Rfam assigns this 173-nucleotide sequence from Brevibacillus panacihumi to the family "Group II catalytic intron D1-D4-3". About the family: Group II introns are found in rRNA, tRNA and mRNA of organelles in fungi, plants and protists, and also in mRNA in bacteria.
RNA sequence: UCCACCGCGAGGUGGAAUUUGAAGGAAGCCGGCGGCAAAGUCCCGACCUGAGGUACACGAACCCAAUUCGAGGCUGUUGUAUUCGGGCGAGUCUGCAGAACAAGGCAAAGCCCCAUACAGCCUAGGAAUACAGCAGGAAACUUGGGCAGGUACAUGGGAUGAAAGUUAUCGCU
Numbered sequence: 001u002c003c004a005c006c007g008c009g010a011g012g013u014g015g016a017a018u019u020u021g022a023a024g025g026a027a028g029c030c031g032g033c034g035g036c037a038a039a040g041u042c043c044c045g046a047c048c049u050g051a052g053g054u055a056c057a058c059g060a061a062c063c064c065a066a067u068u069c070g071a072g073g074c075u076g077u078u079g080u081a082u083u084c085g086g087g088c089g090a091g092u093c094u095g096c097a098g099a100a101c102a103a104g105g106c107a108a109a110g111c112c113c114c115a116u117a118c119a120g121c122c123u124a125g126g127a128a129u130a131c132a133g134c135a136g137g138a139a140a141c142u143u144g145g146g147c148a149g150g151u152a153c154a155u156g157g158g159a160u161g162a163a164a165g166u167u168a169u170c171g172c173u
Base pairs, nucleotide, nucleotide: 001016002015003014004013005012006011028173030171031170032169035166036165040160041159042158043157044156045155046151047150048149049148050147062146063145064144065143066142067140074136075135077133078132079131080130081129082128083127085113086112087111088110091106092105093104094103
Gene Ontology term of the family: Group II intron splicing.